RNA sequence: UUGAAGGAUUUGAAGACCUCAACUUGCAGACUUGAAGAAUUUGAAGAUCUCAACUUGCAGACGUGAAGAGUUUGAAGACCUCAAUU
Numbered sequence: 001u002u003g004a005a006g007g008a009u010u011u012g013a014a015g016a017c018c019u020c021a022a023c024u025u026g027c028a029g030a031c032u033u034g035a036a037g038a039a040u041u042u043g044a045a046g047a048u049c050u051c052a053a054c055u056u057g058c059a060g061a062c063g064u065g066a067a068g069a070g071u072u073u074g075a076a077g078a079c080c081u082c083a084a085u086u
Base pairs, nucleotide, nucleotide: 001084002083003082004081006079009076010075011074012073013072014071017068019066020065021064025059026058027057028056032053033052034051035050037048
RNA: MIR8024 microRNA precursor family